[Rfam]
Rfam assigns this 300-nucleotide RNA sequence from Gopherus agassizii to the family "Metazoan signal recognition particle RNA".
Taxonomically the source falls in Gopherus (Eukaryota, Eumetazoa, Chordata, Cryptodira).
Clan: SRP clan.
The family has 91 seed sequences and 383,523 matches in Rfam 15.1.
Rfam describes the family as follows. The signal recognition particle (SRP) is a universally conserved ribonucleoprotein. It is involved in the co-translational targeting of proteins to membranes.
By type it is a non-coding RNA gene.
RNA sequence: GCUGGGCAUUGUGGCUGGUGCCUGUCAUCCUAGCUCCCAGAGAGACUGAGGCCAGCAGAUCGCUUGAGCUCAGGAGUUCUAGGCUGCAGUGGGCUGUGCUGAUCAGGUGUCCACACUAAGUUUGGCAUCAAUAUGGUGAUCCCUGGGAAGCUUGGGGUCCCCAGGUUGCCUAAGGAGGGGUGAACCAGUCCAGGUCAGAAAUGGAGCAGGUCAAAACUCCCAUGCUGAUCAGUAGUGGGAUCGUGCAUGUGAAUAGCCUCUGCAGCGUAGCCUGGGCAAGAUGGUGAGACAUGGUCUCUU
Numbered sequence: 001g002c003u004g005g006g007c008a009u010u011g012u013g014g015c016u017g018g019u020g021c022c023u024g025u026c027a028u029c030c031u032a033g034c035u036c037c038c039a040g041a042g043a044g045a046c047u048g049a050g051g052c053c054a055g056c057a058g059a060u061c062g063c064u065u066g067a068g069c070u071c072a073g074g075a076g077u078u079c080u081a082g083g084c085u086g087c088a089g090u091g092g093g094c095u096g097u098g099c100u101g102a103u104c105a106g107g108u109g110u111c112c113a114c115a116c117u118a119a120g121u122u123u124g125g126c127a128u129c130a131a132u133a134u135g136g137u138g139a140u141c142c143c144u145g146g147g148a149a150g151c152u153u154g155g156g157g158u159c160c161c162c163a164g165g166u167u168g169c170c171u172a173a174g175g176a177g178g179g180g181u182g183a184a185c186c187a188g189u190c191c192a193g194g195u196c197a198g199a200a201a202u203g204g205a206g207c208a209g210g211u212c213a214a215a216a217c218u219c220c221c222a223u224g225c226u227g228a229u230c231a232g233u234a235g236u237g238g239g240a241u242c243g244u245g246c247a248u249g250u251g252a253a254u255a256g257c258c259u260c261u262g263c264a265g266c267g268u269a270g271c272c273u274g275g276g277c278a279a280g281a282u283g284g285u286g287a288g289a290c291a292u293g294g295u296c297u298c299u300u
Base pairs, nucleotide, nucleotide: 001046003044004023005022006021007020008019009018010017011016028043029042048298049297050296051295052294053293054292060287061286062285063284064283068277069276070275071274072273073272074271079270080269081268083266084265085264086263087262088261089260091258093257094256095255096254097253099251104249105248107246108245109244110243111239112238114237115236116235117234118233120230122228123227124226125225126224127223128222129168130167131166132165134163135162136161138159139158140157141156142155143154145152146151169175170174177220178219179218180217181216188211189210190209195204196203197202
Dot-bracket structure: (.(((((((((....))))))))....((............))).).(((((((.....(((((...(((((((....(((.(((((((.(.(((((.(....((.((((((.(((((.(.(((((((((((.(((.((((((.((....)).)))))).))).))))((...)).(((((......(((....(((....)))....)))....))))).))))))).)..)))))))...)))).)).).)))))).))))))).)))))))))).....)))))....)))))))..